[Rfam]
Nucleotides: 097
Base pairs, nucleotide, nucleotide: 005090006089008087010083011082012081013080014079015075017074018073019072020071021070024066025065026064027063028062034059035058036057037056042051043050044049
Number, partner (000 for none) and nucleotide at each position: 001000u002000c003000u004000a005090a006089g007000g008087c009000u010083c011082u012081c013080c014079g015075c016000a017074a018073c019072g020071a021070u022000u023000a024066c025065c026064c027063g028062u029000c030000a031000a032000c033000c034059u035058g036057g037056u038000c039000a040000g041000g042051c043050c044049c045000g046000g047000a048000a049044g050043g051042g052000a053000g054000c055000a056037g057036c058035c059034a060000u061000a062028g063027c064026g065025g066024g067000a068000a069000c070021a071020u072019c073018g074017u075015g076000u077000g078000c079014c080013g081012g082011g083010g084000u085000g086000u087008g088000g089006c090005u091000g092000g093000u094000g095000g096000g097000g
A member of the RNA family "Bacterial small signal recognition particle RNA" from Pseudomonas sp. 1239, 97 nucleotides long. Lineage of the source: Bacteria > Pseudomonadati > Gammaproteobacteria > Pseudomonadaceae > Pseudomonas. The signal recognition particle (SRP) is a universally conserved ribonucleoprotein involved in the co-translational targeting of proteins to membranes. Rfam classes the family as a non-coding RNA gene.